A member of the RNA family "Cripavirus internal ribosome entry site (IRES)" from Wuhan insect virus 33, 180 nucleotides long. Rfam describes the family as follows. This family represents a Cripavirus internal ribosome entry site (IRES) which is required for the production of capsid proteins through IRES-mediated translation. Gene Ontology term of the family: ribosome binding. A reference for the family is Kanamori and Nakashima (2001), "A tertiary structure model of the internal ribosome entry site (IRES) for methionine-independent initiation of translation", RNA. It scores 124 bits against the family's covariance model. The organism belongs to Riboviria, within Viruses.
RNA sequence: GCUACAACGUGAUCUUGCGCAAUAACUGCCGACGUGAAAACGUUGCGUACUGCUGUUGUAGUUGGUUAGCUAUUUAGCUUUACUAAUCAAGACGCCUGCGUGCAGCCCACCAAAGUCUAGAUACGUCACAAGCGGCGUUGCAUUAGGUCGUGCGCGCUGCUCAAAAUUGACCUGCUAAUA
Numbered sequence: 001g002c003u004a005c006a007a008c009g010u011g012a013u014c015u016u017g018c019g020c021a022a023u024a025a026c027u028g029c030c031g032a033c034g035u036g037a038a039a040a041c042g043u044u045g046c047g048u049a050c051u052g053c054u055g056u057u058g059u060a061g062u063u064g065g066u067u068a069g070c071u072a073u074u075u076a077g078c079u080u081u082a083c084u085a086a087u088c089a090a091g092a093c094g095c096c097u098g099c100g101u102g103c104a105g106c107c108c109a110c111c112a113a114a115g116u117c118u119a120g121a122u123a124c125g126u127c128a129c130a131a132g133c134g135g136c137g138u139u140g141c142a143u144u145a146g147g148u149c150g151u152g153c154g155c156g157c158u159g160c161u162c163a164a165a166a167u168u169g170a171c172c173u174g175c176u177a178a179u180a
Stems, first nucleotide, its partner, number of pairs: 001062009016049008031126001064096003068079004086122003090118004100110003132160005139154005144174006
Dot-bracket structure: (((((((((......((((((((.......[..........))))))))....))))))))).[[[.((((....))))......(((.((((]]]...(((.....)))....)))).)))...].....(((((..((((([[[[[[))))).)))))........]]]]]]......